[Rfam]
RNA sequence: UCCUAUACCCCAUGUUUCCUUAGUUCCAAAUAUAUAUAUAUAUAUAUAAAUAAUUUGGAACUAAGGAAACAUGGGGUAUAGGA
Numbered sequence: 001u002c003c004u005a006u007a008c009c010c011c012a013u014g015u016u017u018c019c020u021u022a023g024u025u026c027c028a029a030a031u032a033u034a035u036a037u038a039u040a041u042a043u044a045u046a047u048a049a050a051u052a053a054u055u056u057g058g059a060a061c062u063a064a065g066g067a068a069a070c071a072u073g074g075g076g077u078a079u080a081g082g083a
Stems, first nucleotide, its partner, number of pairs: 007077024
RNA: mir-1 microRNA precursor family
Organism: Eleutherodactylus coqui